[Rfam]
RNA sequence: AUGGAAGUGACGAUCCUUUCCCCAGAUGAUCGACUAUGAUUAUACAGUGCGCACAAGUGACCCCUCUUCGAGGAGGAUUCCAAGCCAGAAUUCUGAUCCAU
Numbered sequence: 001a002u003g004g005a006a007g008u009g010a011c012g013a014u015c016c017u018u019u020c021c022c023c024a025g026a027u028g029a030u031c032g033a034c035u036a037u038g039a040u041u042a043u044a045c046a047g048u049g050c051g052c053a054c055a056a057g058u059g060a061c062c063c064c065u066c067u068u069c070g071a072g073g074a075g076g077a078u079u080c081c082a083a084g085c086c087a088g089a090a091u092u093c094u095g096a097u098c099c100a101u
Stems, first nucleotide, its partner, number of pairs: 001101005